[Rfam]
RNA sequence: UGAAGAGUAAGGAUACGAGCGUUAAGUAUUGGCCGGACGGGGAGUUGCUGGCUGAGCGAAAAGCCCAGGCUUGCGGUUCGUAUUCUGCAUCCUGCUUCA
Numbered sequence: 001u002g003a004a005g006a007g008u009a010a011g012g013a014u015a016c017g018a019g020c021g022u023u024a025a026g027u028a029u030u031g032g033c034c035g036g037a038c039g040g041g042g043a044g045u046u047g048c049u050g051g052c053u054g055a056g057c058g059a060a061a062a063g064c065c066c067a068g069g070c071u072u073g074c075g076g077u078u079c080g081u082a083u084u085c086u087g088c089a090u091c092c093u094g095c096u097u098c099a
Base pairs, nucleotide, nucleotide: 001099002098003097004096005095010086011085012084013083014082015081016080017079018078019077020075021074022073026057027056029055030054031053032052033051034050035049036048040092041091042090044088061072062071063070064069
The record is a 99-nucleotide RNA from [Clostridium] symbiosum, which matches "THF (Tetrahydrofolate) riboswitch aptamer" in Rfam. Tetrahydrofolate (THF) riboswitch was first reported for Ames et al. as an RNA motif in 5' untranslated (5'-UTR)regions of folate transport and biosynthesis genes in Firmicutes genomes. NCBI's taxonomy places the organism under Bacteria, Bacillati, Lachnospiraceae, Otoolea, [Clostridium] symbiosum. Pairs were carried over by alignment from the consensus structure, which is taken from published work.